[Rfam]
Shown here is a 75-nucleotide RNA from Arachis hypogaea, a member of the family "Small nucleolar RNA J33". Its family is annotated with nucleolus and RNA processing in the Gene Ontology. On this family, see Chen et al., Nucleic Acids Res 2003: "The high diversity of snoRNAs in plants: identification and comparative study of 120 snoRNA genes from Oryza sativa".

RNA sequence: CAGUUAGAGGAAUGAUGUACUACUACAAGGCCCUCAAGCUUUUGGCUUUUCUUGAUUCUGCACCAGACAUAAAUG
Number, nucleotide and partner (000 for none) at each position: 001c075002a074003g000004u072005u071006a070007g000008a000009g000010g000011a000012a000013u000014g000015a000016u000017g000018u000019a000020c000021u000022a000023c000024u000025a000026c000027a000028a000029g000030g000031c000032c000033c000034u000035c000036a000037a000038g000039c000040u000041u000042u000043u000044g000045g000046c000047u000048u000049u000050u000051c000052u000053u000054g000055a000056u000057u000058c000059u000060g000061c000062a000063c000064c000065a000066g000067a000068c000069a000070u006071a005072a004073a000074u002075g001